[Rfam]
Nucleotides: 121
Base pairs, nucleotide, nucleotide: 060083061082062081063080066078067077069075086100087099089098090097091096
Number, partner (000 for none) and nucleotide at each position: 001000c002000u003000u004000g005000a006000a007000c008000a009000u010000c011000g012000c013000u014000u015000g016000a017000a018000c019000a020000c021000c022000c023000g024000a025000g026000c027000c028000g029000c030000u031000c032000u033000c034000c035000g036000c037000c038000c039000c040000a041000c042000c043000c044000g045000g046000c047000u048000a049000c050000u051000c052000u053000g054000g055000c056000u057000c058000c059000g060083u061082g062081c063080g064000u065000c066078c067077u068000c069075c070000c071000g072000c073000c074000g075069g076000a077067a078066g079000a080063c081062g082061c083060a084000a085000a086100g087099c088000c089098g090097a091096c092000a093000g094000c095000c096091g097090u098089c099087g100086c101000a102000c103000u104000c105000c106000a107000g108000g109000g110000a111000g112000c113000a114000c115000u116000u117000c118000c119000a120000u121000g

This 121-nucleotide RNA sequence from Streptomyces jumonjinensis belongs to the Rfam family "Streptomyces-metH RNA".
NCBI's taxonomy places the organism under Bacteria, Actinomycetota, Kitasatosporales, Streptomycetaceae, Streptomyces.
Rfam classes the family as a small RNA.
It scores 97 bits against the family's covariance model.